[Rfam]
RNA sequence: ACCGUCCUUAUCUGGGGGUUGCGUGGCUGCCCGAUGAGCGCGUGGCGAGGGUAGCACUGCUAACGCCUAAAACAACACACCAGCGCCCGCCGCGUGCGCGGCGCAAUUUUUGGAACC
Numbered sequence: 001a002c003c004g005u006c007c008u009u010a011u012c013u014g015g016g017g018g019u020u021g022c023g024u025g026g027c028u029g030c031c032c033g034a035u036g037a038g039c040g041c042g043u044g045g046c047g048a049g050g051g052u053a054g055c056a057c058u059g060c061u062a063a064c065g066c067c068u069a070a071a072a073c074a075a076c077a078c079a080c081c082a083g084c085g086c087c088c089g090c091c092g093c094g095u096g097c098g099c100g101g102c103g104c105a106a107u108u109u110u111u112g113g114a115a116c117c
Stems, first nucleotide, its partner, number of pairs: 006018004021060003026055007038046002083104005088098003
Record summary: The family of this 117-nucleotide sequence from Strigops habroptila is "U4atac minor spliceosomal RNA". A reference for the family is Lorkovic et al. (2005), "Evolutionary conservation of minor U12-type spliceosome between plants and humans", RNA. U4atac is an essential component of the minor U12-type spliceosome complex which is required for removal of the rarer class of eukaryotic introns (AT-AC, U12-type). The family has 61 seed sequences and 1,648 matches in Rfam 15.1. By type it is a spliceosomal small nuclear RNA.